[Rfam]
Nucleotides: 124
Stems, first nucleotide, its partner, number of pairs: 002058005015044003019039007077116003081113002084110003093103004
Number, partner (000 for none) and nucleotide at each position: 001000c002058g003057g004056a005055g006054g007000u008000c009000u010000g011000a012000g013000a014000a015044g016043g017042u018000u019039c020038a021037a022036c023035a024034g025033c026000u027000u028000g029000c030000u031000g032000u033025g034024c035023u036022g037021u038020u039019g040000u041000c042017a043016c044015u045000g046000g047000u048000u049000u050000u051000u052000u053000a054006c055005c056004u057003c058002c059000a060000a061000u062000a063000u064000u065000a066000a067000c068000a069000c070000a071000u072000a073000g074000a075000c076000a077116c078115a079114c080000a081113a082112u083000g084110u085109u086108g087000u088000c089000a090000u091000u092000c093103u094102a095101a096100g097000g098000a099000a100096u101095u102094u103093a104000a105000a106000a107000c108086u109085g110084a111000u112082a113081u114079g115078u116077g117000u118000g119000u120000u121000u122000g123000u124000g